[Rfam]
RNA sequence: CCUGAGAGAGCGUUUUGCCUACAUGGACAUAAAGUGCUCCAUUAAGGAUGCAUUUUAUGUCCAUGUAGGCAAAACGCUCCCUCAGGG
Numbered sequence: 001c002c003u004g005a006g007a008g009a010g011c012g013u014u015u016u017g018c019c020u021a022c023a024u025g026g027a028c029a030u031a032a033a034g035u036g037c038u039c040c041a042u043u044a045a046g047g048a049u050g051c052a053u054u055u056u057a058u059g060u061c062c063a064u065g066u067a068g069g070c071a072a073a074a075c076g077c078u079c080c081c082u083c084a085g086g087g
Stems, first nucleotide, its partner, number of pairs: 001086006008079014023064015040047001